[Rfam]
RNA sequence: UGUGAUCUCCACCCGGUGGCUCCCGGCCGGUUCGAGCCUGACUUCACUUCCCCGAUGUCAGGAACGGCCCGGAAGGGAACCUCCGUGUGGAGCAGGGAAAGG
Numbered sequence: 001u002g003u004g005a006u007c008u009c010c011a012c013c014c015g016g017u018g019g020c021u022c023c024c025g026g027c028c029g030g031u032u033c034g035a036g037c038c039u040g041a042c043u044u045c046a047c048u049u050c051c052c053c054g055a056u057g058u059c060a061g062g063a064a065c066g067g068c069c070c071g072g073a074a075g076g077g078a079a080c081c082u083c084c085g086u087g088u089g090g091a092g093c094a095g096g097g098a099a100a101g102g
Base pairs, nucleotide, nucleotide: 010089011088012087014085015084016083018081019080021078022077023076024075027072028071029070030069032067033066034065037062038061039060040059041058042057044055
Background:
The record is a 102-nucleotide sequence from Tessaracoccus flavescens, which matches "mraW RNA" in Rfam. Pairs were carried over by alignment from the consensus structure, which is taken from published work. It scores 56 bits against the family's covariance model.